Rfam assigns this 317-nucleotide RNA sequence from Flavobacteriaceae bacterium EG-1 to the family "Bacterial RNase P class A".
The match comes from Rfam's covariance-model search (194 bits).
[Rfam]
RNA sequence: ACAGCAGGCCACCUUAUCGCUAUUCGCUUUGUGCUAAUAGAGGAAAGUCCGGACACCAUAGUGCAGUAUAGCGGGUAACUCCCGUCAUUGCGGCUUUGCCGCGAGAGGACCAGUGCAACAGAAAGCAAGUACAGUUCGGCUGUAGUGAAAUCAGGUAAACUCUAUACGGUGCAACGCCAUGUAAAUCAGUGUUUGAGGGCUGCACGCCCAAACUGAAGGGUAGGCGGAUUGAGUCUUAGAGUAAUCUAAGACCGAGAUAAAUGAUAAGGACAACACUUCGGUGUUGGACAGAAUCCGGCUUAUGGCCUGCUUUUUUA
Number, nucleotide and partner (000 for none) at each position: 001a313002c000003a311004g310005c309006a308007g307008g306009c305010c304011a303012c269013c268014u267015u266016a265017u264018c263019g000020c040021u039022a038023u037024u036025c000026g034027c033028u000029u000030u000031g000032u000033g027034c026035u000036a024037a023038u022039a021040g020041a000042g000043g000044a000045a301046a300047g299048u000049c298050c297051g296052g295053a294054c171055a170056c169057c168058a000059u000060a000061g205062u204063g203064c202065a000066g167067u166068a165069u164070a163071g085072c084073g083074g082075g081076u000077a000078a000079c000080u000081c075082c074083c073084g072085u071086c107087a000088u104089u103090g102091c101092g100093g099094c000095u000096u000097u000098g000099c093100c092101g091102c090103g089104a088105g000106a000107g086108g162109a161110c000111c000112a000113g160114u159115g156116c155117a000118a000119c000120a000121g000122a000123a000124a000125g000126c000127a000128a000129g000130u144131a143132c142133a141134g140135u139136u000137c000138g000139g135140c134141u133142g132143u131144a130145g000146u000147g000148a000149a000150a000151u000152c000153a000154g000155g116156u115157a000158a000159a114160c113161u109162c108163u070164a069165u068166a067167c066168g057169g056170u055171g054172c000173a000174a000175c226176g225177c224178c223179a000180u000181g000182u000183a000184a000185a000186u216187c215188a214189g213190u212191g000192u000193u000194u000195g000196a000197g209198g208199g207200c206201u000202g064203c063204a062205c061206g200207c199208c198209c197210a000211a000212a190213c189214u188215g187216a186217a000218g000219g000220g000221u000222a000223g178224g177225c176226g175227g000228a000229u000230u000231g000232a000233g252234u251235c250236u249237u248238a247239g246240a245241g000242u000243a000244a000245u240246c239247u238248a237249a236250g235251a234252c233253c000254g000255a000256g000257a000258u000259a000260a000261a000262u000263g018264a017265u016266a015267a014268g013269g012270a000271c000272a000273a000274c000275a000276c000277u000278u000279c000280g000281g000282u000283g000284u000285u000286g000287g000288a000289c000290a000291g000292a000293a000294u053295c052296c051297g050298g049299c047300u046301u045302a000303u011304g010305g009306c008307c007308u006309g005310c004311u003312u000313u001314u000315u000316u000317a000
It is annotated as a ribozyme. NCBI's taxonomy places the organism under Bacteria, Pseudomonadati, Flavobacteriia, Flavobacteriales, Flavobacteriaceae.